The family of this 117-nucleotide sequence is "U5 spliceosomal RNA". By type it is a spliceosomal small nuclear RNA. Rfam's curators write: U5 RNA is a component of both types of known spliceosome.
RNA sequence: CGACUCUGGUUUCUCUUCAUUACGCACAAGCCUUUCGCCUUUUACUAAAGACUUCCGUGGAGAGGAACACUUACGAGUUCAACGUAUUUUUGGAAGGGCUUUGCUUCUGGCAGAGCC
Numbered sequence: 001c002g003a004c005u006c007u008g009g010u011u012u013c014u015c016u017u018c019a020u021u022a023c024g025c026a027c028a029a030g031c032c033u034u035u036c037g038c039c040u041u042u043u044a045c046u047a048a049a050g051a052c053u054u055c056c057g058u059g060g061a062g063a064g065g066a067a068c069a070c071u072u073a074c075g076a077g078u079u080c081a082a083c084g085u086a087u088u089u090u091u092g093g094a095a096g097g098g099c100u101u102u103g104c105u106u107c108u109g110g111c112a113g114a115g116c117c
Stems, first nucleotide, its partner, number of pairs: 003078004009068011028054003032050004096117001098116006

On this family, see Hinz et al., J Biol Chem 1996: "Domain analysis of human U5 RNA. Cap trimethylation, protein binding, and spliceosome assembly". The family's consensus secondary structure is taken from published work.